[Rfam]
RNA: Bacterial RNase P class A
Organism: Eubacterium sp. CAG:251
RNA sequence: CGAGUUGACUUGGCAAUUGCGUGCCGAUAUCGGUAUGAGGAAAGUCCGAGCAGCGCAGAGCAGAAUAACGGCUAACGGCCGCCGAGGGUGACCUUAGGGAAAGUGCAACAGAGAUAUACCGCCUAUACCAAGUAUAGGUAAGGGUGGAAAGGCGAGGUAAGAGCUCACCGAGGGAGUGGAGACAUUCCCUGCCAUGUAAACCCUAUUCGCUGCAACAUCGACUGAAGGGUUGUUUGCUCGACACAUAACUUCGAAGGAUGGCUCGAUUGCAAAAGCAAUUUUGCAACUAGAUAGAUAAUUGCCCAUGACAGAACUCGGCUUACUGUCAACUCGCUCA
Numbered sequence: 001c002g003a004g005u006u007g008a009c010u011u012g013g014c015a016a017u018u019g020c021g022u023g024c025c026g027a028u029a030u031c032g033g034u035a036u037g038a039g040g041a042a043a044g045u046c047c048g049a050g051c052a053g054c055g056c057a058g059a060g061c062a063g064a065a066u067a068a069c070g071g072c073u074a075a076c077g078g079c080c081g082c083c084g085a086g087g088g089u090g091a092c093c094u095u096a097g098g099g100a101a102a103g104u105g106c107a108a109c110a111g112a113g114a115u116a117u118a119c120c121g122c123c124u125a126u127a128c129c130a131a132g133u134a135u136a137g138g139u140a141a142g143g144g145u146g147g148a149a150a151g152g153c154g155a156g157g158u159a160a161g162a163g164c165u166c167a168c169c170g171a172g173g174g175a176g177u178g179g180a181g182a183c184a185u186u187c188c189c190u191g192c193c194a195u196g197u198a199a200a201c202c203c204u205a206u207u208c209g210c211u212g213c214a215a216c217a218u219c220g221a222c223u224g225a226a227g228g229g230u231u232g233u234u235u236g237c238u239c240g241a242c243a244c245a246u247a248a249c250u251u252c253g254a255a256g257g258a259u260g261g262c263u264c265g266a267u268u269g270c271a272a273a274a275g276c277a278a279u280u281u282u283g284c285a286a287c288u289a290g291a292u293a294g295a296u297a298a299u300u301g302c303c304c305a306u307g308a309c310a311g312a313a314c315u316c317g318g319c320u321u322a323c324u325g326u327c328a329a330c331u332c333g334c335u336c337a
Base pairs, nucleotide, nucleotide: 001333002332003331004330005329006328007327008326009325012303013302014301015300016299017298018297020037021036022035023034024033025032026031042321043320044319046318047317048316049315050314051212052211053210054209058239059238060237061236063208064207065206066205067204069081070080071079072078083097084095085094086093087092098203099202103201104200105197106196107195119143120142121139122138123137124136125135126134127133128132151169152168154166155165156164170192171190172189173188174187175186176185177184178183216260217259218258219257226251227250228249231243232242233241234240267286268285269284270283271282272281273280274279